Nucleotides: 122
Base pairs, nucleotide, nucleotide: 010113016107017106018105019104020103021102022101023100024099026097027096028095029094030093031092032091033090034089035088
Number, partner (000 for none) and nucleotide at each position: 001000a002000g003000g004000g005000a006000g007000g008000a009000u010113c011000u012000g013000u014000a015000a016107a017106g018105c019104u020103c021102a022101g023100g024099a025000g026097g027096g028095a029094u030093a031092g032091c033090g034089c035088c036000a037000g038000a039000u040000g041000a042000a043000u044000u045000a046000a047000c048000c049000a050000a051000g052000a053000u054000u055000c056000u057000a058000a059000g060000c061000a062000a063000u064000u065000a066000a067000g068000c069000g070000u071000u072000u073000a074000u075000u076000u077000c078000g079000u080000c081000a082000u083000c084000a085000u086000c087000u088035g089034g090033c091032g092031c093030u094029a095028u096027c097026c098000a099024u100023c101022c102021u103020g104019a105018g106017u107016u108000u109000c110000a111000u112000g113010g114000c115000u116000u117000c118000u119000u120000c121000u122000u
Rfam assigns this 122-nucleotide RNA sequence from Pyrus ussuriensis x Pyrus communis to the family "MIR390 microRNA precursor family".